[Rfam]
RNA sequence: UGAUAGAAAAGGCAAACUUAUUGAAAAAUGAGGACGCAAAGCUAUAGGGACUAAGGAAUUCAAUUUUUAUGUCAGCCAGCUGCCUAA
Numbered sequence: 001u002g003a004u005a006g007a008a009a010a011g012g013c014a015a016a017c018u019u020a021u022u023g024a025a026a027a028a029u030g031a032g033g034a035c036g037c038a039a040a041g042c043u044a045u046a047g048g049g050a051c052u053a054a055g056g057a058a059u060u061c062a063a064u065u066u067u068u069a070u071g072u073c074a075g076c077c078a079g080c081u082g083c084c085u086a087a
Base pairs, nucleotide, nucleotide: 012037013036017032018031019030020029021028022027040081041080042079043078047077048076049073050072051071056067057066058065
Dot-bracket structure: ...........((...((((((....))))))...))..((((...(((((....(((......)))...)))..))))))......